[Rfam]
RNA sequence: CGAGACGGCCGGGCGAUCGCGGCGCACGGAACCACCCUGUACACGGGGCAGGCCGGGCGCGGAGGAAAGUCCGGACUCCACAGGGCAACGGUGGUUGCUAACAGCAACCCGGGGCGACCCGCGGGAACAGUGCCACAGAAAACAAACCGCCCGCCACGCGCGGGUAAGGGUGAAAAGGUGCGGUAAGAGCGCACCAGCACCCCAGGCGACUGGGGUGGCUAGGUAAACCCCACCGGGAGCAAGGUCAAGGUGCCCGCACGCACGCCAUCCCAGAUGGUGCACCAGCGUGCGGCGUAGCUCUAGGGCUGCCCGCCCAACAAUGAGCAGGUAGGCCGCUUGAAGCCACCAGCAAUGGUGGGCUCAGAUGGAUGAUCGCCUCGUCCCACGCCUUCUUCGCGUGCCCCUCGCGGGCGCUGCGGAAAUGGACGGGGGAUAGGACAGAAUCCGGCUCAUAGGCCGUCUCGGCGC
Number, nucleotide and partner (000 for none) at each position: 001c464002g463003a462004g461005a460006c459007g458008g457009c456010c455011g453012g377013g376014c375015g374016a373017u372018c371019g000020c062021g000022g060023c059024g058025c057026a000027c055028g054029g000030a000031a000032c000033c000034a000035c000036c000037c000038u000039g000040u000041a000042c000043a000044c000045g000046g000047g000048g000049c000050a000051g000052g000053c000054c028055g027056g000057g025058c024059g023060c022061g000062g020063a000064g000065g000066a000067a000068a450069g449070u000071c448072c447073g446074g445075a444076c239077u238078c237079c236080a000081c000082a000083g311084g310085g309086c308087a000088a000089c235090g234091g233092u232093g231094g108095u107096u106097g105098c104099u000100a000101a000102c000103a000104g098105c097106a096107a095108c094109c123110c121111g120112g119113g118114g000115c000116g000117a000118c113119c112120c111121g110122c000123g109124g230125g229126a000127a000128c000129a000130g228131u227132g224133c223134c222135a000136c000137a000138g000139a000140a000141a000142a000143c000144a000145a000146a000147c169148c168149g165150c164151c163152c162153g161154c160155c000156a000157c000158g000159c000160g154161c153162g152163g151164g150165u149166a000167a000168g148169g147170g000171u000172g000173a000174a000175a000176a000177g195178g194179u193180g192181c191182g190183g000184u000185a000186a000187g000188a000189g000190c182191g181192c180193a179194c178195c177196a000197g219198c217199a216200c215201c214202c213203c212204a211205g210206g000207c000208g000209a000210c205211u204212g203213g202214g201215g200216u199217g198218g000219c197220u000221a000222g134223g133224u132225a000226a000227a131228c130229c125230c124231c093232a092233c091234c090235g089236g079237g078238a077239g076240c000241a000242a000243g334244g333245u332246c331247a000248a000249g000250g000251u000252g325253c324254c000255c322256g321257c000258a000259c000260g000261c000262a000263c000264g000265c000266c000267a000268u000269c000270c000271c000272a000273g000274a000275u000276g000277g000278u000279g000280c000281a000282c000283c000284a000285g000286c000287g000288u000289g000290c000291g000292g000293c000294g000295u000296a000297g000298c000299u000300c000301u000302a000303g315304g314305g313306c312307u000308g086309c085310c084311c083312g306313c305314c304315c303316a000317a000318c000319a000320a000321u256322g255323a000324g253325c252326a000327g000328g000329u000330a000331g246332g245333c244334c243335g000336c000337u000338u000339g000340a000341a000342g000343c358344c357345a356346c355347c354348a353349g000350c000351a000352a000353u348354g347355g346356u345357g344358g343359g000360c000361u000362c000363a000364g000365a000366u000367g000368g000369a000370u000371g018372a017373u016374c015375g014376c013377c012378u000379c000380g000381u000382c000383c000384c000385a000386c000387g000388c000389c000390u000391u000392c000393u000394u000395c000396g000397c000398g000399u000400g000401c000402c000403c000404c000405u000406c000407g000408c000409g000410g000411g000412c000413g000414c000415u000416g000417c000418g000419g000420a000421a000422a000423u000424g000425g000426a000427c000428g000429g000430g000431g000432g000433a000434u000435a000436g000437g000438a000439c000440a000441g000442a000443a000444u075445c074446c073447g072448g071449c069450u068451c000452a000453u011454a000455g010456g009457c008458c007459g006460u005461c004462u003463c002464g001465g000466c000467g000468c000
RNA: Bacterial RNase P class A